[Rfam]
RNA sequence: UGUUCUCGCGUGUGCCUGGGUCCGCCGCAUCUCCUGGGUCCGCGGGAUCGGCCGAUCGGGGCGUGGUAGGAGUGGCCUCCUCUGUUACGUCACGUGUUCGAUCGGCCACCCU
Numbered sequence: 001u002g003u004u005c006u007c008g009c010g011u012g013u014g015c016c017u018g019g020g021u022c023c024g025c026c027g028c029a030u031c032u033c034c035u036g037g038g039u040c041c042g043c044g045g046g047a048u049c050g051g052c053c054g055a056u057c058g059g060g061g062c063g064u065g066g067u068a069g070g071a072g073u074g075g076c077c078u079c080c081u082c083u084g085u086u087a088c089g090u091c092a093c094g095u096g097u098u099c100g101a102u103c104g105g106c107c108a109c110c111c112u
Stems, first nucleotide, its partner, number of pairs: 004047007015038006050107011
The record is a 112-nucleotide RNA from a Parvibaculaceae bacterium, which matches "EcpR1" in Rfam.
The organism belongs to Parvibaculaceae, within Bacteria.
The family's RNA type in Rfam is small RNA.
On this family, see Wilms et al., RNA Biol 2012: "Deep sequencing uncovers numerous small RNAs on all four replicons of the plant pathogen Agrobacterium tumefaciens".
Perviously named SmelC291, SmrC10, or Sra33. According to its overproduction phenotype it was renamed Elongated Cell Phenotype RNA1. Induced by stress,EcpR1 negatively regulates cell cycle master regulatory genes dnaA and gcrA at post-transcriptional level by base pairing between its strongly conserved GC-rich loop and the target mRNAs. It's regulation is hfq-independent but requires RNase E to regulate dnaA.